[Rfam]
RNA: Small nucleolar RNA SNORA15
RNA sequence: GCAUGGACGAAUUCUGCACUAGCUUCCCUCAGUAGCUAAUGCAGUCAGACACUAUGCCAGAAUAAAUUCCUUUUUCACACUGAUUGGUAUGCUUUUUUUAUGAGAAUGGGCAUGCCUUUGGAAGUGGGAUACAUAA
Numbered sequence: 001g002c003a004u005g006g007a008c009g010a011a012u013u014c015u016g017c018a019c020u021a022g023c024u025u026c027c028c029u030c031a032g033u034a035g036c037u038a039a040u041g042c043a044g045u046c047a048g049a050c051a052c053u054a055u056g057c058c059a060g061a062a063u064a065a066a067u068u069c070c071u072u073u074u075u076c077a078c079a080c081u082g083a084u085u086g087g088u089a090u091g092c093u094u095u096u097u098u099u100a101u102g103a104g105a106a107u108g109g110g111c112a113u114g115c116c117u118u119u120g121g122a123a124g125u126g127g128g129a130u131a132c133a134u135a136a
Stems, first nucleotide, its partner, number of pairs: 001057006014044005068129003072124006086116009